[Rfam]
RNA sequence: CAAGGACCCGCCGUCGCCGCGGGUGGCUAUCUCGGCCGCCGAUCCGCCGGGAAACU
Numbered sequence: 001c002a003a004g005g006a007c008c009c010g011c012c013g014u015c016g017c018c019g020c021g022g023g024u025g026g027c028u029a030u031c032u033c034g035g036c037c038g039c040c041g042a043u044c045c046g047c048c049g050g051g052a053a054a055c056u
Base pairs, nucleotide, nucleotide: 006024007023008022009021010020011019031051032050033049034048035047036046